[Rfam]
RNA sequence: ACGUCAGCUUUAGCUCACUGGUUACUUCAUAUCAUCAACUUAAUUAUAAGUUCGAACCUGUCUCACCGUGGGCGUUGUCUUGCGUUUUU
Numbered sequence: 001a002c003g004u005c006a007g008c009u010u011u012a013g014c015u016c017a018c019u020g021g022u023u024a025c026u027u028c029a030u031a032u033c034a035u036c037a038a039c040u041u042a043a044u045u046a047u048a049a050g051u052u053c054g055a056a057c058c059u060g061u062c063u064c065a066c067c068g069u070g071g072g073c074g075u076u077g078u079c080u081u082g083c084g085u086u087u088u089u
Stems, first nucleotide, its partner, number of pairs: 002084003006080002013073004019068003026056003

A member of the RNA family "Vault RNA" from Scyliorhinus torazame, 89 nucleotides long. The family's consensus secondary structure is taken from published work. The family has 73 seed sequences and 2,873 matches in Rfam 15.1. Rfam classes the family as a non-coding RNA gene. From the family's description: This family of RNAs are found as part of the enigmatic vault ribonucleoprotein complex.